[Rfam]
RNA sequence: GGGGCCGUCGUCUAAUGGUAAGACAUCAGCUUCCCAAGCUGAGAACGCGGGUUCGAUUCCCGUCGGCCCCU
Numbered sequence: 001g002g003g004g005c006c007g008u009c010g011u012c013u014a015a016u017g018g019u020a021a022g023a024c025a026u027c028a029g030c031u032u033c034c035c036a037a038g039c040u041g042a043g044a045a046c047g048c049g050g051g052u053u054c055g056a057u058u059c060c061c062g063u064c065g066g067c068c069c070c071u
Base pairs, nucleotide, nucleotide: 001070002069003068004067005066006065007064010024011023012022013021026042027041028040029039030038047063048062049061050060051059
Annotation
A member of the RNA family "tRNA" from Leucobacter soli, 71 nucleotides long. It scores 69 bits against the family's covariance model. Pairs were carried over by alignment from the consensus structure, which is taken from published work. It is annotated as a transfer RNA.